[Rfam]
RNA sequence: AGCCCGUGAUCCGGCUGUUCCCGCUGCCCUUUAAAGCACUUGGAGAAAUUAACAACCAAACCAAACCCCGCCUGACCGCCCGGCAAUUGGUAGCCACUCGUUCGGGUGGCGGGGGCAUAGGCGGGUCGGUUUGGUGGGGUACGGUCGCCGCACACCACCACAACCACAGACAGUGAACGACCCCCGACAGGACGGCAAUCCUGACGAGGGUCUGACCACGCAGGAAGAAAAGAGCUUCCCC
Numbered sequence: 001a002g003c004c005c006g007u008g009a010u011c012c013g014g015c016u017g018u019u020c021c022c023g024c025u026g027c028c029c030u031u032u033a034a035a036g037c038a039c040u041u042g043g044a045g046a047a048a049u050u051a052a053c054a055a056c057c058a059a060a061c062c063a064a065a066c067c068c069c070g071c072c073u074g075a076c077c078g079c080c081c082g083g084c085a086a087u088u089g090g091u092a093g094c095c096a097c098u099c100g101u102u103c104g105g106g107u108g109g110c111g112g113g114g115g116c117a118u119a120g121g122c123g124g125g126u127c128g129g130u131u132u133g134g135u136g137g138g139g140u141a142c143g144g145u146c147g148c149c150g151c152a153c154a155c156c157a158c159c160a161c162a163a164c165c166a167c168a169g170a171c172a173g174u175g176a177a178c179g180a181c182c183c184c185c186g187a188c189a190g191g192a193c194g195g196c197a198a199u200c201c202u203g204a205c206g207a208g209g210g211u212c213u214g215a216c217c218a219c220g221c222a223g224g225a226a227g228a229a230a231a232g233a234g235c236u237u238c239c240c241c
Stems, first nucleotide, its partner, number of pairs: 005220004014080001016078002094109006120149005179212005185206002189202004223239005
The family of this 241-nucleotide sequence from Streptomyces tsukubensis is "Streptomyces sRNA 4677". It is annotated as a small RNA. The organism belongs to Streptomyces, within Bacteria. For this family Rfam cites "Complex intra-operonic dynamics mediated by a small RNA in Streptomyces coelicolor" (Hindra et al., PLoS One, 2014). The base pairs follow the family's consensus structure. Located in the intergenic region between anti-sigma factor SCO4677 gene and a putative regulatory protein gene SCO4676. scr4677 expression requires the SCO4677 activity and scr4677 sRNA itself seem to affect the levels of the SCO4676-associated transcripts.